A member of the RNA family "tRNA" from a Candidatus Methanophagaceae archaeon, 132 nucleotides long. It scores 49 bits against the family's covariance model. Transfer RNA (tRNA) molecules are approximately 80 nucleotides in length. The family's consensus secondary structure is taken from published work.

RNA sequence: GGGCGUGUGGCCUAGCUAGGAUAUGGCGGCAGCCUCCUAACCCUAACUCAGAGUAUAGUCUUUUAAUAGAAUACGUAUAAGAGAGAAGAGGGAGAGAGCUGCAAAUCACGGGUUCAAAUCCCGUCACGCCCG
Dot-bracket structure: (((((((..(((............))).(((((................................................................))))).....(((((.......)))))))))))).
Numbered sequence: 001g002g003g004c005g006u007g008u009g010g011c012c013u014a015g016c017u018a019g020g021a022u023a024u025g026g027c028g029g030c031a032g033c034c035u036c037c038u039a040a041c042c043c044u045a046a047c048u049c050a051g052a053g054u055a056u057a058g059u060c061u062u063u064u065a066a067u068a069g070a071a072u073a074c075g076u077a078u079a080a081g082a083g084a085g086a087a088g089a090g091g092g093a094g095a096g097a098g099c100u101g102c103a104a105a106u107c108a109c110g111g112g113u114u115c116a117a118a119u120c121c122c123g124u125c126a127c128g129c130c131c132g
Stems, first nucleotide, its partner, number of pairs: 001131007010027003029102005108124005

Lineage of the source: Archaea > Methanobacteriati > Methanobacteriota > Methanomicrobia > Candidatus Methanophagaceae.